[Rfam]
RNA sequence: GUGUUACUCAAAAAGGGGGCACUUGCCGUUUUUGGGACUGGGAAGUGCUCCCUUUUUGUGUGUCAC
Dot-bracket structure: ....(((.(((((((((((((((..((............))..))))))))))))))).)))....
Numbered sequence: 001g002u003g004u005u006a007c008u009c010a011a012a013a014a015g016g017g018g019g020c021a022c023u024u025g026c027c028g029u030u031u032u033u034g035g036g037a038c039u040g041g042g043a044a045g046u047g048c049u050c051c052c053u054u055u056u057u058g059u060g061u062g063u064c065a066c
Stems, first nucleotide, its partner, number of pairs: 005062003009058015026041002